[Rfam]
RNA: Small nucleolar RNA R11/Z151
Organism: Chenopodium quinoa
RNA sequence: GAGUUGAUGAUGAUACUUUAUAUUAUCUUAGCGGAUUUCAGUGAGAUCUAUGAUCUAUGAUCUGAUUGUUACACACACUGAAGCUC
Numbered sequence: 001g002a003g004u005u006g007a008u009g010a011u012g013a014u015a016c017u018u019u020a021u022a023u024u025a026u027c028u029u030a031g032c033g034g035a036u037u038u039c040a041g042u043g044a045g046a047u048c049u050a051u052g053a054u055c056u057a058u059g060a061u062c063u064g065a066u067u068g069u070u071a072c073a074c075a076c077a078c079u080g081a082a083g084c085u086c
Stems, first nucleotide, its partner, number of pairs: 001086005